[Rfam]
U1 spliceosomal RNA: a 164-nucleotide sequence from Lactuca saligna. A search with the family's covariance model found it, with a score of 111 bits. NCBI's taxonomy places the organism under Eukaryota, Streptophytina, Spermatophyta, Asterales, Lactuca.
RNA sequence: UCACUUACCUGGACGGUGUCUUUGGGGGAUCAAGAAGGUCCAUGGCCUAGGCUGGUGGUCUCCAUUGCACAUUACGGAGAGGUGCCUGUCUAAGGUCGGCCCAAGUUGGUCGAACCUACGUCAUAAUUUGUGUUAGAGGGGGCCUGCGUUCGCGCGGCUCCUAC
Numbered sequence: 001u002c003a004c005u006u007a008c009c010u011g012g013a014c015g016g017u018g019u020c021u022u023u024g025g026g027g028g029a030u031c032a033a034g035a036a037g038g039u040c041c042a043u044g045g046c047c048u049a050g051g052c053u054g055g056u057g058g059u060c061u062c063c064a065u066u067g068c069a070c071a072u073u074a075c076g077g078a079g080a081g082g083u084g085c086c087u088g089u090c091u092a093a094g095g096u097c098g099g100c101c102c103a104a105g106u107u108g109g110u111c112g113a114a115c116c117u118a119c120g121u122c123a124u125a126a127u128u129u130g131u132g133u134u135a136g137a138g139g140g141g142g143c144c145u146g147c148g149u150u151c152g153c154g155c156g157g158c159u160c161c162u163a164c
Stems, first nucleotide, its partner, number of pairs: 012122004016048001018046003023042004049091003053088001055085003059081001061079001062077002093117003096113003100109002138162004145156004